Rfam assigns this 239-nucleotide RNA from Streptomyces sp. BR123 to the family "Streptomyces sRNA 4677". Located in the intergenic region between anti-sigma factor SCO4677 gene and a putative regulatory protein gene SCO4676. scr4677 expression requires the SCO4677 activity and scr4677 sRNA itself seem to affect the levels of the SCO4676-associated transcripts. The family has 12 seed sequences and 563 matches in Rfam 15.1. The organism belongs to Streptomyces, within Bacteria.
RNA sequence: CGCCGCGGUGCGCGUGUCGCCUACCCCUCUAAAGAAACGGGGAAAACAACCAACCAACCCACCACGUCACCACCCUGGACAUCCGUCGCUCACACGGGUGAACUGUGCCAACUGCACUGGAAAUACACAUCGGUUGCGGGCAUAUGCUCGCCGCGACGACAACCCCAGACACAAGUCAGCCCCCGCCGGGACGGCAAUCCCGACGAGGGCCUGACCACGAGGAAGAGAACGGCUUCCCG
Number, nucleotide and partner (000 for none) at each position: 001c000002g000003c000004c000005g000006c000007g000008g218009u217010g216011c000012g000013c000014g000015u000016g073017u072018c000019g070020c000021c000022u000023a000024c000025c000026c000027c000028u000029c000030u000031a000032a000033a000034g000035a000036a000037a000038c000039g000040g000041g000042g000043a000044a000045a000046a000047c000048a000049a000050c000051c000052a000053a000054c000055c000056a000057a000058c000059c000060c000061a000062c000063c000064a000065c000066g000067u000068c000069a000070c019071c000072a017073c016074c000075c000076u000077g000078g000079a000080c000081a000082u000083c000084c000085g000086u101087c100088g099089c098090u097091c096092a000093c000094a000095c000096g091097g090098g089099u088100g087101a086102a000103c000104u000105g000106u000107g000108c000109c000110a000111a000112c000113u000114g000115c000116a000117c000118u150119g149120g148121a000122a000123a000124u000125a000126c000127a000128c000129a000130u000131c000132g000133g000134u000135u000136g000137c000138g000139g000140g000141c000142a000143u000144a000145u000146g000147c000148u120149c119150g118151c000152c000153g000154c000155g000156a000157c000158g000159a000160c000161a000162a000163c000164c000165c000166c000167a000168g000169a000170c000171a000172c000173a000174a000175g000176u000177c000178a000179g210180c209181c208182c207183c000184c205185g204186c000187c000188g201189g200190g199191a198192c000193g000194g000195c000196a000197a000198u191199c190200c189201c188202g000203a000204c185205g184206a000207g182208g181209g180210c179211c000212u000213g000214a000215c000216c010217a009218c008219g000220a000221g237222g236223a235224a234225g233226a000227g000228a000229a000230c000231g000232g000233c225234u224235u223236c222237c221238c000239g000